Rfam assigns this 127-nucleotide RNA sequence from Castor canadensis to the family "Small nucleolar RNA SNORA51". The match comes from Rfam's covariance-model search (88 bits). The family's RNA type in Rfam is H/ACA-box small nucleolar RNA. Rfam links the family to the GO terms RNA processing and nucleolus.
RNA sequence: GGCCUCCUGGUGCUUACUACAGGCUGUGUGCUUACACUGACUAUAUACAAAGAGCCAAAUAAACCUACCCCACUUUACCUCGACCCAUGUCCUGUGUCUUGUCUGUAUUGUGAAUGGGGAAACCUGA
Numbered sequence: 001g002g003c004c005u006c007c008u009g010g011u012g013c014u015u016a017c018u019a020c021a022g023g024c025u026g027u028g029u030g031c032u033u034a035c036a037c038u039g040a041c042u043a044u045a046u047a048c049a050a051a052g053a054g055c056c057a058a059a060u061a062a063a064c065c066u067a068c069c070c071c072a073c074u075u076u077a078c079c080u081c082g083a084c085c086c087a088u089g090u091c092c093u094g095u096g097u098c099u100u101g102u103c104u105g106u107a108u109u110g111u112g113a114a115u116g117g118g119g120a121a122a123c124c125u126g127a
Stems, first nucleotide, its partner, number of pairs: 002056001004054003008050001021042002026037004068119005081105002085101001087099001089097002
The family's consensus secondary structure was predicted with PFOLD. ACA51 is a member of the H/ACA class of snoRNA that guide the sites of modification of uridines to pseudouridines. The family has 9 seed sequences and 2,121 matches in Rfam 15.1.